[Rfam]
RNA sequence: AAUAACCAAAUAUAACACUUGGGCUAAGAGUUAAGUUGAAAAUUUUUCUUACAUACCUAACAAAAUUAAGUGAAUACCCAAAAUUGUUGUCAUUUUAUUUGGAUCUUUCCA
Numbered sequence: 001a002a003u004a005a006c007c008a009a010a011u012a013u014a015a016c017a018c019u020u021g022g023g024c025u026a027a028g029a030g031u032u033a034a035g036u037u038g039a040a041a042a043u044u045u046u047u048c049u050u051a052c053a054u055a056c057c058u059a060a061c062a063a064a065a066u067u068a069a070g071u072g073a074a075u076a077c078c079c080a081a082a083a084u085u086g087u088u089g090u091c092a093u094u095u096u097a098u099u100u101g102g103a104u105c106u107u108u109c110c111a
Stems, first nucleotide, its partner, number of pairs: 069108002072105002077102002080099002
This 111-nucleotide RNA sequence from Cephalotus follicularis belongs to the Rfam family "Antisense RNA which regulates isiA expression".
A search with the family's covariance model found it, with a score of 70 bits.
Lineage of the source: Eukaryota > Streptophyta > Embryophyta > Spermatophyta > Cephalotus.
The base pairs follow the family's consensus structure, which was predicted with PFOLD.